[Rfam]
RNA sequence: AAGACUUGCAUGGAUAUAGAACACUCAUAUCGAUAAAAUGAUUUGAACUACUU
Numbered sequence: 001a002a003g004a005c006u007u008g009c010a011u012g013g014a015u016a017u018a019g020a021a022c023a024c025u026c027a028u029a030u031c032g033a034u035a036a037a038a039u040g041a042u043u044u045g046a047a048c049u050a051c052u053u
Stems, first nucleotide, its partner, number of pairs: 011033001013031005
This 53-nucleotide sequence from Lactuca sativa belongs to the Rfam family "Plastid-atpF group II-D1 intron". The match comes from Rfam's covariance-model search (56 bits). Rfam 15.1 lists 1,372 matches to the family in 227 species. NCBI's taxonomy places the organism under Eukaryota, Mesangiospermae, Pentapetalae, asterids, Lactuca.